[Rfam]
RNA sequence: UGCCCUUGAUGUUGUUAAAUUUGUCCGUACCAUCUGAGAUCUUUAUUUUUCUCUGAUGCAUUCUUUCAAAGUUUAGUUUCUGAGGCAU
Numbered sequence: 001u002g003c004c005c006u007u008g009a010u011g012u013u014g015u016u017a018a019a020u021u022u023g024u025c026c027g028u029a030c031c032a033u034c035u036g037a038g039a040u041c042u043u044u045a046u047u048u049u050u051c052u053c054u055g056a057u058g059c060a061u062u063c064u065u066u067c068a069a070a071g072u073u074u075a076g077u078u079u080c081u082g083a084g085g086c087a088u
Base pairs, nucleotide, nucleotide: 001087002086003085004084

Rfam assigns this 88-nucleotide RNA from Hibiscus trionum to the family "small nucleolar RNA snoR117". Rfam links the family to the GO terms RNA processing and nucleolus. It is annotated as a C/D-box small nucleolar RNA. Pairs were carried over by alignment from the consensus structure, which was predicted with RNAalifold. A reference for the family is Chen and Wu (2009), "Mining small RNA sequencing data: a new approach to identify small nucleolar RNAs in Arabidopsis", Nucleic Acids Res. Taxonomically the source falls in Hibiscus (Eukaryota, Magnoliopsida, Gunneridae, Malvales). A search with the family's covariance model found it, with a score of 60 bits.